[Rfam]
Nucleotides: 421
Stems, first nucleotide, its partner, number of pairs: 024055001025053005035042002065072002076103003086094002106319004112150004118144002121141001125137003155260002157257003162253004169242001172239002175235006185201001187200004204208001211221002270289006296313005353360002376387004
Number, partner (000 for none) and nucleotide at each position: 001000u002000a003000a004000c005000c006000u007000u008000a009000g010000a011000u012000u013000a014000g015000g016000u017000a018000a019000g020000g021000a022000u023000a024055c025053c026052u027051a028050c029049u030000a031000a032000a033000c034000u035042u036041a037000a038000c039000u040000a041036u042035a043000u044000u045000a046000a047000u048000a049029a050028g051027u052026a053025g054000a055024g056000g057000a058000a059000a060000a061000g062000a063000a064000a065072c066071u067000a068000a069000u070000a071066g072065g073000g074000a075000u076103u077102a078101c079000c080000c081000u082000a083000g084000u085000a086094a087093c088000a089000g090000u091000a092000a093087g094086u095000a096000a097000a098000g099000u100000a101078g102077u103076a104000a105000u106319a107318g108317c109316u110000u111000a112150a113149a114148u115147u116000u117000a118144a119143a120000a121141u122000c123000u124000a125137g126136c127135u128000c129000u130000u131000u132000u133000a134000g135127a136126g137125u138000c139000u140000a141121a142000g143119u144118u145000a146000u147115a148114a149113u150112u151000u152000a153000u154000a155260g156259a157257g158256a159255g160000u161000a162253c163252u164251u165250u166000a167000g168000c169242g170000u171000u172239a173238g174000u175235a176234g177233u178232a179231g180230u181000c182000u183000a184000a185201g186000u187200u188199c189198c190197u191000u192000a193000g194000a195000a196000u197190a198189g199188g200187a201185u202000a203000u204208u205000a206000u207000a208204g209000a210000g211221g212220g213000u214000a215000a216000g217000a218000a219000u220212u221211c222000u223000a224000u225000a226000u227000a228000u229000a230180g231179u232178u233177a234176c235175u236000a237000g238173u239172u240000u241000u242169u243000a244000g245000u246000a247000u248000a249000u250165a251164a252163a253162g254000c255159c256158u257157c258000u259156u260155u261000a262000a263000u264000a265000a266000g267000u268000u269000a270289a271288g272287u273286u274285a275284u276000u277000u278000a279000g280000g281000a282000a283000u284275a285274u286273a287272g288271c289270u290000c291000u292000a293000a294000a295000u296313a297312g298311g299310a300309g301000g302000u303000a304000a305000a306000u307000u308000u309300c310299u311298u312297c313296u314000a315000a316109a317108g318107c319106u320000a321000a322000a323000u324000a325000c326000u327000a328000g329000c330000u331000a332000a333000a334000g335000a336000c337000u338000a339000a340000u341000a342000g343000u344000a345000u346000a347000u348000a349000a350000g351000u352000a353360g354359a355000g356000u357000a358000a359354u360353u361000a362000a363000a364000u365000g366000a367000u368000a369000a370000a371000a372000a373000g374000u375000a376387c377386u378385u379384u380000a381000g382000a383000a384379a385378g386377a387376g388000a389000g390000u391000u392000a393000a394000a395000u396000a397000g398000u399000a400000c401000g402000u403000a404000a405000a406000a407000u408000u409000a410000u411000u412000a413000a414000a415000a416000g417000g418000g419000a420000a421000g
A member of the RNA family "Eukaryotic large subunit ribosomal RNA" from Pyrenochaeta sp. MPI-SDFR-AT-0127, 421 nucleotides of a longer RNA. The base pairs follow the family's consensus structure, which is taken from published work. Rfam 15.1 lists 107,465 matches to the family in 2,616 species.